A member of the RNA family "Bacterial RNase P class B" from Eremococcus coleocola, 370 nucleotides long. The literature on the family includes a 1999 paper in Nucleic Acids Res by Brown, "The Ribonuclease P Database". The family is grouped with related families in Rfam's "RNaseP clan". The match comes from Rfam's covariance-model search (288 bits). Ribonuclease P (RNase P) is a ubiquitous endoribonuclease, found in archaea, bacteria and eukarya as well as chloroplasts and mitochondria. Its best characterised activity is the generation of mature 5'-ends of tRNAs by cleaving the 5'-leader elements of precursor-tRNAs. Cellular RNase Ps are ribonucleoproteins. RNA from bacterial RNase Ps retains its catalytic activity in the absence of the protein subunit, i.e. it is a ribozyme. Lineage of the source: Bacteria > Bacillati > Aerococcaceae > Eremococcus > Eremococcus coleocola. The family's RNA type in Rfam is ribozyme. Rfam links the family to the GO terms tRNA processing, ribonuclease P activity and dimeric ribonuclease P complex.
[Rfam]
RNA sequence: AAUUUUAGGUAAUCGCGGCUAGGCAACUAGCUGAGGAAAGUCCAUGCUCGCACAGGCUGAGAUGCUUGUAGUGUUCGUGCUUAGCGAAGUCAUAAGCUAUGGGAGUAGCAAUACUUACGGCGGGAGAAAACGUCUAAGGUUAGUUUCGGCUAACUAUGACCCACUAUCCCCUAAGGUGCCACAGAAACGAUUCUGCCAGAAAUGGUCAGACUGGAACGCGGUAAACCCCUCGAGCGAGCAACCCAAACAUUGGUAGGGGCGUCUUUUCAAAGGAAUUCAACGAGUGAAAAGGACAAGCAAUUGUAGAUAGAUGAUUACCCCUCUAAGUUAAGGCCUAUCUUAACUUAGGGACAGAACAUGGCUUAUCGAA
Dot-bracket structure: ...(((((((((((.((((((......))))))....[[[.[[[[[(((((((((((......)))))).....(((.((.((((..........)))).)((((((....))))).)((.((((......(((...(((((((....)))))))..)))......)))).....(((((...........(((((((....))).)))).........)))..))))).))))))))...(((...........)))...(((((((.................)))))))((((....))))........)))))))..((((((((((((....)))))))))))).......]]]]]]]].).)))